RNase MRP: a 465-nucleotide RNA from Cudoniella acicularis. RNase MRP is an enzymatically active ribonucleoprotein with two distinct roles in eukaryotes. The source organism's lineage runs through Eukaryota, Fungi, saccharomyceta, leotiomyceta and Cudoniella. A reference for the family is Schmitt et al. (1993), "Secondary structure of RNase MRP RNA as predicted by phylogenetic comparison", FASEB J.
[Rfam]
RNA sequence: CUCUCGCUCAAAGAAUCGCAUUCGAAGCACACAAACAGAGAGGCUCCUCGGAGUCUCUCAGCUAGCAAUGGCUGCUCAUGCUUUGGGAGAAAGUCCCCGGACACCCUUCCUUGAGAAGGACUGCGGAAACGCGCCGCCAUAGAAGCACUUCGCGGCUUCUCCCCUACCAAUUCUCUUCUCUUCUUCCACCCUUUCGCCGUCUGUACUGCAUUUUCAAUGAUACCAGAAACAUCGGUCUGAGUCGAGGAGACCACAUGGAUGAAGAUAUGAGUCCGAGCUCCUUGAUGACGUCUUUUACGACUGGAAGAGUUGGCAAUGCAGUAGGUGUUUGGACUGUUCUUGGAUGAGUGGUGAUGUUCUGGUUGGUGGAGGCAAUUUCGUCGAGAUCGAUAGUUAUGCGAUUGCUCCUCGUGCCACGAAAGUGGUGCGGGAAGUAACUCGAUGGGGCUUAUUCUUGAUGCGAGA
Numbered sequence: 001c002u003c004u005c006g007c008u009c010a011a012a013g014a015a016u017c018g019c020a021u022u023c024g025a026a027g028c029a030c031a032c033a034a035a036c037a038g039a040g041a042g043g044c045u046c047c048u049c050g051g052a053g054u055c056u057c058u059c060a061g062c063u064a065g066c067a068a069u070g071g072c073u074g075c076u077c078a079u080g081c082u083u084u085g086g087g088a089g090a091a092a093g094u095c096c097c098c099g100g101a102c103a104c105c106c107u108u109c110c111u112u113g114a115g116a117a118g119g120a121c122u123g124c125g126g127a128a129a130c131g132c133g134c135c136g137c138c139a140u141a142g143a144a145g146c147a148c149u150u151c152g153c154g155g156c157u158u159c160u161c162c163c164c165u166a167c168c169a170a171u172u173c174u175c176u177u178c179u180c181u182u183c184u185u186c187c188a189c190c191c192u193u194u195c196g197c198c199g200u201c202u203g204u205a206c207u208g209c210a211u212u213u214u215c216a217a218u219g220a221u222a223c224c225a226g227a228a229a230c231a232u233c234g235g236u237c238u239g240a241g242u243c244g245a246g247g248a249g250a251c252c253a254c255a256u257g258g259a260u261g262a263a264g265a266u267a268u269g270a271g272u273c274c275g276a277g278c279u280c281c282u283u284g285a286u287g288a289c290g291u292c293u294u295u296u297a298c299g300a301c302u303g304g305a306a307g308a309g310u311u312g313g314c315a316a317u318g319c320a321g322u323a324g325g326u327g328u329u330u331g332g333a334c335u336g337u338u339c340u341u342g343g344a345u346g347a348g349u350g351g352u353g354a355u356g357u358u359c360u361g362g363u364u365g366g367u368g369g370a371g372g373c374a375a376u377u378u379c380g381u382c383g384a385g386a387u388c389g390a391u392a393g394u395u396a397u398g399c400g401a402u403u404g405c406u407c408c409u410c411g412u413g414c415c416a417c418g419a420a421a422g423u424g425g426u427g428c429g430g431g432a433a434g435u436a437a438c439u440c441g442a443u444g445g446g447g448c449u450u451a452u453u454c455u456u457g458a459u460g461c462g463a464g465a
Stems, first nucleotide, its partner, number of pairs: 002465006008458004014403006022087001023085006038059009091450003095447004122133004134155004139150001339348001340346001405434002408431009